[Rfam]
RNA: Small nucleolar RNA SNORD25
RNA sequence: AACAGCGAUGAUGAGUAAAUACAGACCUGUAAUGAUUUGCGAAUAUGAUCGCAAAUAUUAAUGAACAUCUAAGGGACUGAGUUGUU
Numbered sequence: 001a002a003c004a005g006c007g008a009u010g011a012u013g014a015g016u017a018a019a020u021a022c023a024g025a026c027c028u029g030u031a032a033u034g035a036u037u038u039g040c041g042a043a044u045a046u047g048a049u050c051g052c053a054a055a056u057a058u059u060a061a062u063g064a065a066c067a068u069c070u071a072a073g074g075g076a077c078u079g080a081g082u083u084g085u086u
Base pairs, nucleotide, nucleotide: 002085003084004083005082006081